RNA sequence: AACGGUCAAUCGCUGAAUUUUCUGACGAAAACCGGGGGAACCAGGAUCAUGGGGUGAAUCGGCGUUUCACUGAACGUCGUAGGGCGAAUUCUCACCGCCCGAAUCCGUCAGCUAACCUCGGAAGCGAAGUGGGAAGGAUAG
Numbered sequence: 001a002a003c004g005g006u007c008a009a010u011c012g013c014u015g016a017a018u019u020u021u022c023u024g025a026c027g028a029a030a031a032c033c034g035g036g037g038g039a040a041c042c043a044g045g046a047u048c049a050u051g052g053g054g055u056g057a058a059u060c061g062g063c064g065u066u067u068c069a070c071u072g073a074a075c076g077u078c079g080u081a082g083g084g085c086g087a088a089u090u091c092u093c094a095c096c097g098c099c100c101g102a103a104u105c106c107g108u109c110a111g112c113u114a115a116c117c118u119c120g121g122a123a124g125c126g127a128a129g130u131g132g133g134a135a136g137g138a139u140a141g
Stems, first nucleotide, its partner, number of pairs: 011126004018031003032121006042051002052106003060079006082100004

c-di-AMP riboswitch aptamer (ydaO/yuaA leader): a 141-nucleotide RNA sequence from Paenibacillus xerothermodurans. Its family is annotated with regulation of gene expression and cyclic-di-AMP binding in the Gene Ontology. The literature on the family includes a 2004 paper in Proc Natl Acad Sci U S A by Barrick et al., "New RNA motifs suggest an expanded scope for riboswitches in bacterial genetic control".